[Rfam]
RNA sequence: UGAUAUGCGAUGAAGCGGAAGGUUGCUUACGGUAUGUAAGGGAAUUUCCGCAGAGUAUGUCCGAUUUUAAACCGGGCGGCUG
Numbered sequence: 001u002g003a004u005a006u007g008c009g010a011u012g013a014a015g016c017g018g019a020a021g022g023u024u025g026c027u028u029a030c031g032g033u034a035u036g037u038a039a040g041g042g043a044a045u046u047u048c049c050g051c052a053g054a055g056u057a058u059g060u061c062c063g064a065u066u067u068u069a070a071a072c073c074g075g076g077c078g079g080c081u082g
Stems, first nucleotide, its partner, number of pairs: 015051003020047003026040005059080003065076003
This 82-nucleotide RNA sequence from Ruminococcus sp. CAG:353 belongs to the Rfam family "S10-Clostridia ribosomal protein leader".
The base pairs follow the family's consensus structure, which is taken from published work.
By type it is a cis-regulatory leader.